[Rfam]
RNA sequence: GUCCUCGGUUCUUGGCACUCUGAUGUCAAUCUAUUCAUCAGAUGUGUAUGCAUAAUCGGAGGUAGAGUAGGUUGUGCCAAGUGGUGCAGCAGUCGGAUCACCUUCGGUGUCAGACAAUAUCCUUCGUGUUUGAUAUCAUCCUCUGGAUUCGAAACAUUU
Numbered sequence: 001g002u003c004c005u006c007g008g009u010u011c012u013u014g015g016c017a018c019u020c021u022g023a024u025g026u027c028a029a030u031c032u033a034u035u036c037a038u039c040a041g042a043u044g045u046g047u048a049u050g051c052a053u054a055a056u057c058g059g060a061g062g063u064a065g066a067g068u069a070g071g072u073u074g075u076g077c078c079a080a081g082u083g084g085u086g087c088a089g090c091a092g093u094c095g096g097a098u099c100a101c102c103u104u105c106g107g108u109g110u111c112a113g114a115c116a117a118u119a120u121c122c123u124u125c126g127u128g129u130u131u132g133a134u135a136u137c138a139u140c141c142u143c144u145g146g147a148u149u150c151g152a153a154a155c156a157u158u159u
Stems, first nucleotide, its partner, number of pairs: 003062004008057001010055001015047004020041006093152007106137002110133006
RNA: Nematode snoRNA ceN88